[Rfam]
Rfam assigns this 94-nucleotide sequence from Trichlorobacter lovleyi to the family "Selenocysteine transfer RNA".
RNA sequence: GGAGGUACGUCGGGCGCUGGUGGCCCGCGCGGUCUUCAAAACCGUUGAGAGGGGUGAGAAACUCCUUUGGCAGGUUCGAUUCCUGUGUACCUCC
Numbered sequence: 001g002g003a004g005g006u007a008c009g010u011c012g013g014g015c016g017c018u019g020g021u022g023g024c025c026c027g028c029g030c031g032g033u034c035u036u037c038a039a040a041a042c043c044g045u046u047g048a049g050a051g052g053g054g055u056g057a058g059a060a061a062c063u064c065c066u067u068u069g070g071c072a073g074g075u076u077c078g079a080u081u082c083c084u085g086u087g088u089a090c091c092u093c094c
Stems, first nucleotide, its partner, number of pairs: 001094009011027005017022001029045005048068005071085004